Shown here is a 65-nucleotide sequence from Pipra filicauda, a member of the family "MAT2A 3'UTR stem loop A". For this family Rfam cites "New families of human regulatory RNA structures identified by comparative analysis of vertebrate genomes" (Parker et al., Genome Res, 2011). By type it is a cis-regulatory element. The organism belongs to Pipra, within Eukaryota. A search with the family's covariance model found it, with a score of 49 bits.

RNA sequence: GGCUUUUCCCCCCACUCCCACGGGCGUAGGUUACAGAGAAGCCCGUGGGCUCUGGGGGAAGAGCU
Dot-bracket structure: ((((....(((.((....((..(((((.....))......)))..)).....)).)))...))))